[Rfam]
RNA sequence: CCAAGUCCCGACGCAAUCCCCCCCGGCGCCGGGACUCUCCCCGAGCCGGGCUCCGGCGCCCUCCCCCCCUGGGCGCCGGGGCCCGGCUUCUUU
Numbered sequence: 001c002c003a004a005g006u007c008c009c010g011a012c013g014c015a016a017u018c019c020c021c022c023c024c025g026g027c028g029c030c031g032g033g034a035c036u037c038u039c040c041c042c043g044a045g046c047c048g049g050g051c052u053c054c055g056g057c058g059c060c061c062u063c064c065c066c067c068c069c070u071g072g073g074c075g076c077c078g079g080g081g082c083c084c085g086g087c088u089u090c091u092u093u
Stems, first nucleotide, its partner, number of pairs: 005035006012028003043089010054078008